[Rfam]
A member of the RNA family "RNase MRP" from Imshaugia aleurites, 516 nucleotides long.
The family's consensus secondary structure is taken from published work.
Rfam links the family to the GO terms ribonuclease MRP activity, rRNA processing and ribonuclease MRP complex.
Rfam describes the family as follows. RNase MRP is an enzymatically active ribonucleoprotein with two distinct roles in eukaryotes. In mitochondria it plays a direct role in the initiation of mitochondrial DNA replication.
The match comes from Rfam's covariance-model search (83 bits).
RNA sequence: CUCCUCGCUCAAAUAAUCGCAGUCGAAGCUUACAAAAGGAGAAGCCGGUACAUUCGUGUGUUGAGCUUCUCGAGAUUACACAUACUGCUUCGGGAGAAAGUCCCCGGACACCUCUUACUCCUCGGAGUACUGAGAAAGCGGAAACGCACCCCCAUAAAAGCAACUUUCGGGGUUUACCUUCUCCCCACCUCUUCUACCCUCAUAGCCCCUUUCUUGGCUGUUUGUACUCCUCUCGCUUUCUUCUCAGGUCCCGGGUUGCAGUCUGAGAGACCACAUGGAUGAAGAUAUGAGUCCGAGCUCGACUGAUCUGUGCACCGCAUGGCUUGGAUUGGGAGUGGGGGGAAGAGGUCAUGAUUGUGCUUGGCUAUGAGGAAGAGGGUUCAUAGGUGUGUGGAUGGGGGAUACAUUCGUCGAGAUGGAUAGAUAUGUGAUUGCCUUCUUCUGACUUGCUCUGGUUUCUGGAUUGGAUCGAGGAAGAUGAUGGUGACUCAAUGGGGCUUACAGAUGAGGCGAGGA
Numbered sequence: 001c002u003c004c005u006c007g008c009u010c011a012a013a014u015a016a017u018c019g020c021a022g023u024c025g026a027a028g029c030u031u032a033c034a035a036a037a038g039g040a041g042a043a044g045c046c047g048g049u050a051c052a053u054u055c056g057u058g059u060g061u062u063g064a065g066c067u068u069c070u071c072g073a074g075a076u077u078a079c080a081c082a083u084a085c086u087g088c089u090u091c092g093g094g095a096g097a098a099a100g101u102c103c104c105c106g107g108a109c110a111c112c113u114c115u116u117a118c119u120c121c122u123c124g125g126a127g128u129a130c131u132g133a134g135a136a137a138g139c140g141g142a143a144a145c146g147c148a149c150c151c152c153c154a155u156a157a158a159a160g161c162a163a164c165u166u167u168c169g170g171g172g173u174u175u176a177c178c179u180u181c182u183c184c185c186c187a188c189c190u191c192u193u194c195u196a197c198c199c200u201c202a203u204a205g206c207c208c209c210u211u212u213c214u215u216g217g218c219u220g221u222u223u224g225u226a227c228u229c230c231u232c233u234c235g236c237u238u239u240c241u242u243c244u245c246a247g248g249u250c251c252c253g254g255g256u257u258g259c260a261g262u263c264u265g266a267g268a269g270a271c272c273a274c275a276u277g278g279a280u281g282a283a284g285a286u287a288u289g290a291g292u293c294c295g296a297g298c299u300c301g302a303c304u305g306a307u308c309u310g311u312g313c314a315c316c317g318c319a320u321g322g323c324u325u326g327g328a329u330u331g332g333g334a335g336u337g338g339g340g341g342g343a344a345g346a347g348g349u350c351a352u353g354a355u356u357g358u359g360c361u362u363g364g365c366u367a368u369g370a371g372g373a374a375g376a377g378g379g380u381u382c383a384u385a386g387g388u389g390u391g392u393g394g395a396u397g398g399g400g401g402a403u404a405c406a407u408u409c410g411u412c413g414a415g416a417u418g419g420a421u422a423g424a425u426a427u428g429u430g431a432u433u434g435c436c437u438u439c440u441u442c443u444g445a446c447u448u449g450c451u452c453u454g455g456u457u458u459c460u461g462g463a464u465u466g467g468a469u470c471g472a473g474g475a476a477g478a479u480g481a482u483g484g485u486g487a488c489u490c491a492a493u494g495g496g497g498c499u500u501a502c503a504g505a506u507g508a509g510g511c512g513a514g515g516a
Stems, first nucleotide, its partner, number of pairs: 002516007009508003015433006023094001024092006039071007098500003102497004138147003202221005224405003230401006372382003435484002438481002